RNA sequence: CUGAUCGGCGCGUCCGGGUCAAUUGCGGCGUGCAACACCCGAUCUCCCUCAACUGUCCGUCGGAAAUGACGGUCACCGAGGGGGAGCGCGUGACGAUCAG
Dot-bracket structure: (((((..((((((.((((....(((((...)))))..)))).(((((.....(((....................)..)))))))))))))....)))))
RNA: L4-Archaeoglobi ribosomal protein leades